Shown here is a 109-nucleotide RNA from Leisingera aquimarina, a member of the family "L2-Alphaproteobacteria ribosomal protein leader". NCBI's taxonomy places the organism under Bacteria, Pseudomonadati, Alphaproteobacteria, Rhodobacterales, Leisingera aquimarina. It is one of the family's seed sequences. A reference for the family is Eckert and Weinberg (2020), "Discovery of 20 novel ribosomal leader candidates in bacteria and archaea", BMC Microbiol. The family's consensus secondary structure is taken from published work.
RNA sequence: GGCAACCCUAGUAGGGCGUCUCAUCGUGGGACAACCGGGCGGGGGGCUUACACAUAGCGGGUCCAAAGACAAAAACCUAAGGGCCUGCACGCUAAACGGAAGACAGAAA
Numbered sequence: 001g002g003c004a005a006c007c008c009u010a011g012u013a014g015g016g017c018g019u020c021u022c023a024u025c026g027u028g029g030g031a032c033a034a035c036c037g038g039g040c041g042g043g044g045g046g047c048u049u050a051c052a053c054a055u056a057g058c059g060g061g062u063c064c065a066a067a068g069a070c071a072a073a074a075a076c077c078u079a080a081g082g083g084c085c086u087g088c089a090c091g092c093u094a095a096a097c098g099g100a101a102g103a104c105a106g107a108a109a
Stems, first nucleotide, its partner, number of pairs: 001048003006044003057088005063082002